RNA sequence: UAGGUUAACUGAAAAUAUGCUCGGCUAACCUGGAUUUUUUUAUAGCAUAUUCCAAUUGGAGAUUUCGAUUAUGGCAUUGUCUGCAGAACAAAAAGCAGCAUUGGUAGCUGAGUUUCAAACUAAAGAA
Dot-bracket structure: ......(.((((........)))).)......................((.......((.(.............).))))...............................................
A member of the RNA family "Ribosomal S15 leader" from Maribrevibacterium harenarium, 127 nucleotides long. The family is grouped with related families in Rfam's "Ribosomal Protein S15 Leader clan". A search with the family's covariance model found it, with a score of 42 bits. It is annotated as a cis-regulatory leader. The source organism's lineage runs through Bacteria, Pseudomonadati, Pseudomonadota, Gammaproteobacteria and Maribrevibacterium.